[Rfam]
RNA sequence: GUCUAGCCCCGAUGGAAGCGGCAUCCUUUUUUGGCGCGAGCGAAGCGAGCACCAAAAAAGAUAUAGCGGACAGCGGGAUCAGCU
Numbered sequence: 001g002u003c004u005a006g007c008c009c010c011g012a013u014g015g016a017a018g019c020g021g022c023a024u025c026c027u028u029u030u031u032u033g034g035c036g037c038g039a040g041c042g043a044a045g046c047g048a049g050c051a052c053c054a055a056a057a058a059a060g061a062u063a064u065a066g067c068g069g070a071c072a073g074c075g076g077g078a079u080c081a082g083c084u
Stems, first nucleotide, its partner, number of pairs: 009076003013072002018067002023062003029057006036050001
Shown here is an 84-nucleotide sequence from Halpernia frigidisoli, a member of the family "Flavo-1 RNA". Pairs were carried over by alignment from the consensus structure, which is taken from published work.